[Rfam]
RNA sequence: GUUUAUCUGCCGAGUUUGCCUUUCGGCAAACGUCGCAUUAUUGUAUGCAGUUUGUAAACAAACUGCGUGAAAAAACUUUUUUCGCAAAUUGCUAUUUGCUGCAAAAAGUUUUUAUUGGA
Numbered sequence: 001g002u003u004u005a006u007c008u009g010c011c012g013a014g015u016u017u018g019c020c021u022u023u024c025g026g027c028a029a030a031c032g033u034c035g036c037a038u039u040a041u042u043g044u045a046u047g048c049a050g051u052u053u054g055u056a057a058a059c060a061a062a063c064u065g066c067g068u069g070a071a072a073a074a075a076c077u078u079u080u081u082u083c084g085c086a087a088a089u090u091g092c093u094a095u096u097u098g099c100u101g102c103a104a105a106a107a108g109u110u111u112u113u114a115u116u117g118g119a
Stems, first nucleotide, its partner, number of pairs: 012034002014031007047066008071113011084099006